[Rfam]
RNA sequence: UUAGAUUUUCUUCAUUUUCUUCUGGAAUUUUUCAGAGAUACUUGUUGUUGAAAGUUGAUAGAGAUGAUAUGAAGAUGAAAAAGAGGAGAAA
Numbered sequence: 001u002u003a004g005a006u007u008u009u010c011u012u013c014a015u016u017u018u019c020u021u022c023u024g025g026a027a028u029u030u031u032u033c034a035g036a037g038a039u040a041c042u043u044g045u046u047g048u049u050g051a052a053a054g055u056u057g058a059u060a061g062a063g064a065u066g067a068u069a070u071g072a073a074g075a076u077g078a079a080a081a082a083g084a085g086g087a088g089a090a091a
Base pairs, nucleotide, nucleotide: 006084007083008082009081011079012078013077014076015075016074017073018072019071037056038055039054042051043050
This 91-nucleotide RNA sequence from Medicago truncatula belongs to the Rfam family "MIR5298 microRNA precursor family". It scores 77 bits against the family's covariance model.